Record summary: Shown here is a 68-nucleotide RNA from a Streptosporangiales bacterium, a member of the family "Fluoride riboswitch aptamer (crcB RNA motif)".
[Rfam]
RNA sequence: GCUGCGCCCGGCGAUGGAGCUCGCCGACCGAACCGCCGCUGACCCUGGCUGAUGGCUCCUGUCCAAAC
Numbered sequence: 001g002c003u004g005c006g007c008c009c010g011g012c013g014a015u016g017g018a019g020c021u022c023g024c025c026g027a028c029c030g031a032a033c034c035g036c037c038g039c040u041g042a043c044c045c046u047g048g049c050u051g052a053u054g055g056c057u058c059c060u061g062u063c064c065a066a067a068c
Base pairs, nucleotide, nucleotide: 010025011024012023013022016059017058018057019056020055021054035049036048037047038046
Rfam links the family to the GO terms response to fluoride and positive regulation of gene expression.